The record is a 92-nucleotide RNA sequence from Nitrosomonas oligotropha, which matches "c-di-GMP-I riboswitch aptamer" in Rfam. Gene Ontology term of the family: cyclic-di-GMP binding. From the family's description: GEMM was predicted in a large-scale screen for bacterial structured RNA regulatory elements. The match comes from Rfam's covariance-model search (42 bits). Its Rfam clan is "c-di-GMP_I riboswitch clan".

[Rfam]
RNA sequence: ACCAGACAAAGCCACGCUUGCCGCAAGACAGGCACGGAAAGCCAGCGGAUCUCAUUUGAAUCUCAACAUUGUGAGAUGGCCGGGUUGCCUCC
Number, nucleotide and partner (000 for none) at each position: 001a000002c000003c000004a000005g000006a000007c000008a000009a000010a000011g000012c037013c036014a000015c000016g000017c032018u031019u030020g029021c000022c027023g000024c000025a000026a000027g022028a000029c020030a019031g018032g017033c000034a000035c000036g013037g012038a000039a000040a086041g085042c084043c083044a000045g000046c082047g081048g080049a077050u076051c075052u000053c000054a072055u071056u000057u000058g000059a000060a000061u000062c000063u000064c000065a000066a000067c000068a000069u000070u000071g055072u054073g000074a000075g051076a050077u049078g000079g000080c048081c047082g046083g043084g042085u041086u040087g000088c000089c000090u000091c000092c000